Source information
The record is a 271-nucleotide sequence from Pseudomonas benzenivorans, which matches "Pseudomonas sRNA P17" in Rfam.

RNA sequence: GUAAGGAGUUGGUGGCACGCUCCAGUGACUUUCUCGACAGUCAAUUGAGCUUUCGUGAACGCCUGGCGGUGCGCAGCCACCUGGCCAUGUGCCGGCACUGCCGGCGCUUCAUCAGGCAGAUGCGCGUGACCCAGCGGGUGCUGCGGGCCCUGCCGGAAGCGGCGAUUCCCGAGCUGGAGGCGCUGGCCGCACGGCUGGCCGAACAGCGCCGGCUGCAGCGCUGAUAGCGCACGCCCAGGUUAUUUGCCGUCGUCGAUCGCGUCGGCCGGCA
Numbered sequence: 001g002u003a004a005g006g007a008g009u010u011g012g013u014g015g016c017a018c019g020c021u022c023c024a025g026u027g028a029c030u031u032u033c034u035c036g037a038c039a040g041u042c043a044a045u046u047g048a049g050c051u052u053u054c055g056u057g058a059a060c061g062c063c064u065g066g067c068g069g070u071g072c073g074c075a076g077c078c079a080c081c082u083g084g085c086c087a088u089g090u091g092c093c094g095g096c097a098c099u100g101c102c103g104g105c106g107c108u109u110c111a112u113c114a115g116g117c118a119g120a121u122g123c124g125c126g127u128g129a130c131c132c133a134g135c136g137g138g139u140g141c142u143g144c145g146g147g148c149c150c151u152g153c154c155g156g157a158a159g160c161g162g163c164g165a166u167u168c169c170c171g172a173g174c175u176g177g178a179g180g181c182g183c184u185g186g187c188c189g190c191a192c193g194g195c196u197g198g199c200c201g202a203a204c205a206g207c208g209c210c211g212g213c214u215g216c217a218g219c220g221c222u223g224a225u226a227g228c229g230c231a232c233g234c235c236c237a238g239g240u241u242a243u244u245u246g247c248c249g250u251c252g253u254c255g256a257u258c259g260c261g262u263c264g265g266c267c268g269g270c271a
Base pairs, nucleotide, nucleotide: 011235012234013233018229019228020227023223024222025221026220027219034137035136036135040130042128043127047054048053055125056124057123060122061121063119064118065117067115069113074083075082076081089107090106091105092104093103094102095101096100141218142217143216144215145214146213147187148186149185154159165184167182170179189209190208192206196202245271246270247269248268249267250265251264252263254261255260

Rfam classes the family as a small RNA. The base pairs follow the family's consensus structure, which was predicted with WAR. Taxonomically the source falls in Pseudomonas (Bacteria, Pseudomonadati, Gammaproteobacteria, Pseudomonadaceae).